[Rfam]
RNA sequence: CCAGCUGGCCGGGCGGCCGCACGCGCAAUUGCCGAAAGGCCGCGCGUGAGGAAAGUCCGGGCUCCAUGGAAACACGGUGCCGGUUAAUGGCCGGCGGGGGAAACCCCAGGGAAAGCGCCACAGAAAGCAGACCGCCCCGCCUGCAGGCCGGCCUUUCGCAGCGGCAUAACCGCUGCGCGGACCGGCUUGCUGGCGGGGCAAGGGUGAAAGGGUGGGGUAAGAGCCCACCGCGCGCCUGGCAACAGGGGCGGCACGGCAAGCCCCACCGGGAGCAAGACCGAAUAGGGACGGCGAGGGAGUUCGCUCCCGGGCAGUUUCCGGCCCAGUCGUCCGGGUAGGUUGCAUGAGGCGGGCAGCGAUGUCCGUCCAAGAUGAAUGGCCGCCACGUUCCGGCGCAGCGAUGCGGCGGGGCCAUACAGAACCCGGCUUACAGGCCGGCUGGCACC
Numbered sequence: 001c002c003a004g005c006u007g008g009c010c011g012g013g014c015g016g017c018c019g020c021a022c023g024c025g026c027a028a029u030u031g032c033c034g035a036a037a038g039g040c041c042g043c044g045c046g047u048g049a050g051g052a053a054a055g056u057c058c059g060g061g062c063u064c065c066a067u068g069g070a071a072a073c074a075c076g077g078u079g080c081c082g083g084u085u086a087a088u089g090g091c092c093g094g095c096g097g098g099g100g101a102a103a104c105c106c107c108a109g110g111g112a113a114a115g116c117g118c119c120a121c122a123g124a125a126a127g128c129a130g131a132c133c134g135c136c137c138c139g140c141c142u143g144c145a146g147g148c149c150g151g152c153c154u155u156u157c158g159c160a161g162c163g164g165c166a167u168a169a170c171c172g173c174u175g176c177g178c179g180g181a182c183c184g185g186c187u188u189g190c191u192g193g194c195g196g197g198g199c200a201a202g203g204g205u206g207a208a209a210g211g212g213u214g215g216g217g218u219a220a221g222a223g224c225c226c227a228c229c230g231c232g233c234g235c236c237u238g239g240c241a242a243c244a245g246g247g248g249c250g251g252c253a254c255g256g257c258a259a260g261c262c263c264c265a266c267c268g269g270g271a272g273c274a275a276g277a278c279c280g281a282a283u284a285g286g287g288a289c290g291g292c293g294a295g296g297g298a299g300u301u302c303g304c305u306c307c308c309g310g311g312c313a314g315u316u317u318c319c320g321g322c323c324c325a326g327u328c329g330u331c332c333g334g335g336u337a338g339g340u341u342g343c344a345u346g347a348g349g350c351g352g353g354c355a356g357c358g359a360u361g362u363c364c365g366u367c368c369a370a371g372a373u374g375a376a377u378g379g380c381c382g383c384c385a386c387g388u389u390c391c392g393g394c395g396c397a398g399c400g401a402u403g404c405g406g407c408g409g410g411g412c413c414a415u416a417c418a419g420a421a422c423c424c425g426g427c428u429u430a431c432a433g434g435c436c437g438g439c440u441g442g443c444a445c446c
Stems, first nucleotide, its partner, number of pairs: 001442010011431001012384007020048007053429003057426005062272004071317002075268005080094005095109001096107004110263002115261002117257003132203002134199008211229006230252001231250003235246004276341004286332006309324004348367008
Annotation
The record is a 446-nucleotide RNA sequence from Aquibium oceanicum, which matches "Bacterial RNase P class A" in Rfam. It is annotated as a ribozyme. NCBI's taxonomy places the organism under Bacteria, Pseudomonadati, Pseudomonadota, Phyllobacteriaceae, Aquibium. It scores 282 bits against the family's covariance model.